A member of the RNA family "SAM riboswitch aptamer (S box leader)" from Hydrogenispora ethanolica, 102 nucleotides long. The source organism's lineage runs through Bacteria, Bacillati, Bacillota and Hydrogenispora. Rfam's curators write: The SAM riboswitch is found upstream of a number of genes which code for proteins involved in methionine or cysteine biosynthesis in Gram-positive bacteria.
RNA sequence: CUCUUAUCCAGAGAGGGGAAGGGAAAGGCCCGAUGAUCCCUCGGCAACCGGCGGCAGCGUCGCGCGGUGCCAAUUCCUACAGGGAAACCUGGGAGAUGAGAG
Numbered sequence: 001c002u003c004u005u006a007u008c009c010a011g012a013g014a015g016g017g018g019a020a021g022g023g024a025a026a027g028g029c030c031c032g033a034u035g036a037u038c039c040c041u042c043g044g045c046a047a048c049c050g051g052c053g054g055c056a057g058c059g060u061c062g063c064g065c066g067g068u069g070c071c072a073a074u075u076c077c078u079a080c081a082g083g084g085a086a087a088c089c090u091g092g093g094a095g096a097u098g099a100g101a102g
Base pairs, nucleotide, nucleotide: 001102002101003100004099005098006097007096008095013042014041015040016039017038021031022030023029026078027077028076043071044070045069046068048067049066051063052062053061075094080091081090082089083088